Record summary:
Shown here is an 83-nucleotide RNA sequence from Ornithorhynchus anatinus, a member of the family "mir-145 microRNA precursor family". The sequence is in the family's curated seed alignment. Pairs were carried over by alignment from the consensus structure, which was predicted with RNAalifold. The organism belongs to Ornithorhynchus, within Eukaryota.
RNA sequence: ACCGUGUCUCAGGUCCAGUUUUCCCAGGAAUACAUAGGUGCUGAGAUGGGGAUUCCUGGAAAUACUGUUCUUGAGGUCAUGGC
Numbered sequence: 001a002c003c004g005u006g007u008c009u010c011a012g013g014u015c016c017a018g019u020u021u022u023c024c025c026a027g028g029a030a031u032a033c034a035u036a037g038g039u040g041c042u043g044a045g046a047u048g049g050g051g052a053u054u055c056c057u058g059g060a061a062a063u064a065c066u067g068u069u070c071u072u073g074a075g076g077u078c079a080u081g082g083c
Stems, first nucleotide, its partner, number of pairs: 016067004021062002024059008033050001035048001